[Rfam]
RNA sequence: GGUGCGUGUCCUUAACAGAAACAGAUUCGGGCGGAAUCUGGAGGUUGAAAAGCGGAUGCAAUUUCCGACACGUACC
Numbered sequence: 001g002g003u004g005c006g007u008g009u010c011c012u013u014a015a016c017a018g019a020a021a022c023a024g025a026u027u028c029g030g031g032c033g034g035a036a037u038c039u040g041g042a043g044g045u046u047g048a049a050a051a052g053c054g055g056a057u058g059c060a061a062u063u064u065c066c067g068a069c070a071c072g073u074a075c076c
Stems, first nucleotide, its partner, number of pairs: 001076010022040007044053003054066003